[Rfam]
RNA: U11 spliceosomal RNA
RNA sequence: AAAAAGGGCUUCUGCCACGAGUGGCGCACGCAGGGUUGCUUGAUUGCUCGGCAUGUAAAAUUGACAUCAAGAGAUUUCAGAAGCAUGAUUUUUUGGUGCCUGGGCAGCUGGUGAUCGUUGGUCCUGGUGUGCUU
Number, nucleotide and partner (000 for none) at each position: 001a000002a000003a000004a000005a000006g000007g000008g084009c083010u082011u081012c080013u026014g025015c024016c023017a022018c000019g000020a000021g000022u017023g016024g015025c014026g013027c055028a054029c000030g052031c051032a000033g049034g048035g047036u046037u000038g044039c000040u000041u000042g000043a000044u038045u000046g036047c035048u034049c033050g000051g031052c030053a000054u028055g027056u079057a000058a077059a076060a075061u074062u073063g000064a000065c000066a000067u000068c000069a000070a000071g000072a000073g062074a061075u060076u059077u058078c000079a056080g012081a011082a010083g009084c008085a000086u000087g000088a000089u000090u000091u000092u000093u000094u000095g000096g000097u000098g000099c000100c000101u000102g132103g000104g130105c129106a000107g128108c127109u126110g125111g124112u000113g123114a122115u121116c120117g000118u000119u000120g116121g115122u114123c113124c111125u110126g109127g108128u107129g105130u104131g000132c102133u000134u000